[Rfam]
RNA sequence: GCCGAUAAAGGCAAACCUAUAGAAAUGUAGGGACGCAAAGCUAUAGGGGCUAAAAAGCCAGCCAGCUGCCGAAA
Numbered sequence: 001g002c003c004g005a006u007a008a009a010g011g012c013a014a015a016c017c018u019a020u021a022g023a024a025a026u027g028u029a030g031g032g033a034c035g036c037a038a039a040g041c042u043a044u045a046g047g048g049g050c051u052a053a054a055a056a057g058c059c060a061g062c063c064a065g066c067u068g069c070c071g072a073a074a
Base pairs, nucleotide, nucleotide: 003071004070011036012035016031017030018029019028020027021026034061039067040066041065042064046063047062048059049058050057